[Rfam]
Shown here is a 74-nucleotide sequence from Catenisphaera adipataccumulans, a member of the family "Glycine riboswitch aptamer".
The organism belongs to Catenisphaera, within Bacteria.
Pairs were carried over by alignment from the consensus structure.
The match comes from Rfam's covariance-model search (54 bits).
RNA sequence: GGACGAGCCUUUGGAGAGAUCUGUAAAGACGCCGAAGGGGUAACGCUCUCAGGCAAAAGGACAAAGGAGAGAAU
Numbered sequence: 001g002g003a004c005g006a007g008c009c010u011u012u013g014g015a016g017a018g019a020u021c022u023g024u025a026a027a028g029a030c031g032c033c034g035a036a037g038g039g040g041u042a043a044c045g046c047u048c049u050c051a052g053g054c055a056a057a058a059g060g061a062c063a064a065a066g067g068a069g070a071g072a073a074u
Stems, first nucleotide, its partner, number of pairs: 008067006020029003031054003034050002038048003